[Rfam]
RNA sequence: GGGGGUCUAGCUCAAAUGGGAGAGCGCUCGUUUAGCAUACGAGAGGCACGGGGAUCGAUACCCUGGUCCUCCA
Numbered sequence: 001g002g003g004g005g006u007c008u009a010g011c012u013c014a015a016a017u018g019g020g021a022g023a024g025c026g027c028u029c030g031u032u033u034a035g036c037a038u039a040c041g042a043g044a045g046g047c048a049c050g051g052g053g054a055u056c057g058a059u060a061c062c063c064u065g066g067u068c069c070u071c072c073a
Base pairs, nucleotide, nucleotide: 001072002071003070004069005068007066010025011024012023013022027043028042029041030040031039049065050064051063052062053061
RNA: tRNA